[Rfam]
RNA sequence: UUGGUUUAAAUUAAUGUGGGACCUAUACUUUGAAAAUGAAGCUUGCAUAAAGUGGUGGACAUACAUUGAUUUCACCCAA
Numbered sequence: 001u002u003g004g005u006u007u008a009a010a011u012u013a014a015u016g017u018g019g020g021a022c023c024u025a026u027a028c029u030u031u032g033a034a035a036a037u038g039a040a041g042c043u044u045g046c047a048u049a050a051a052g053u054g055g056u057g058g059a060c061a062u063a064c065a066u067u068g069a070u071u072u073c074a075c076c077c078a079a
Base pairs, nucleotide, nucleotide: 001079002078003077004076006074008072009071010070011069012068013067014066015065016064017063018062023058024057025056026054027053028052029051030050031049032048
RNA: MIR5269 microRNA precursor family
Organism: Medicago truncatula